RNA sequence: GGCAUGGGGUUCGUCGCGAUUACCCCGUGAGGCGGCAGCCGAAAGAUCGCGUCCAUCUUCCCUCUCCAGGGGUGGGCGCCAUG
Number, nucleotide and partner (000 for none) at each position: 001g000002g000003c000004a000005u027006g026007g025008g024009g023010u022011u000012c000013g000014u000015c000016g000017c000018g000019a000020u000021u000022a010023c009024c008025c007026c006027g005028u000029g000030a000031g000032g000033c000034g000035g000036c000037a000038g000039c000040c000041g000042a000043a000044a000045g000046a000047u000048c000049g079050c078051g077052u076053c075054c074055a000056u000057c000058u000059u000060c000061c000062c000063u000064c000065u000066c000067c000068a000069g000070g000071g000072g000073u000074g054075g053076g052077c051078g050079c049080c000081a000082u000083g000
chrB-a RNA: an 83-nucleotide RNA from Azorhizobium oxalatiphilum.
It is annotated as a cis-regulatory element.
A search with the family's covariance model found it, with a score of 67 bits.
Lineage of the source: Bacteria > Pseudomonadota > Hyphomicrobiales > Xanthobacteraceae > Azorhizobium.